[Rfam]
RNA sequence: ACAACGUUCGGACCGCUGGUCUACCGAGCAAUAUCACCCACUCGGUGGAAUACUUUCCCUUCAUAAU
Numbered sequence: 001a002c003a004a005c006g007u008u009c010g011g012a013c014c015g016c017u018g019g020u021c022u023a024c025c026g027a028g029c030a031a032u033a034u035c036a037c038c039c040a041c042u043c044g045g046u047g048g049a050a051u052a053c054u055u056u057c058c059c060u061u062c063a064u065a066a067u
Stems, first nucleotide, its partner, number of pairs: 004064001006062001010058003015053001020049009
Rfam assigns this 67-nucleotide RNA from Bombyx mori to the family "mir-2774 microRNA precursor family". On this family, see Liu et al., BMC Genomics 2010: "MicroRNAs of Bombyx mori identified by Solexa sequencing". The family's consensus secondary structure was predicted with RNAalifold. Lineage of the source: Eukaryota > Eumetabola > Panorpida > Bombycinae > Bombyx.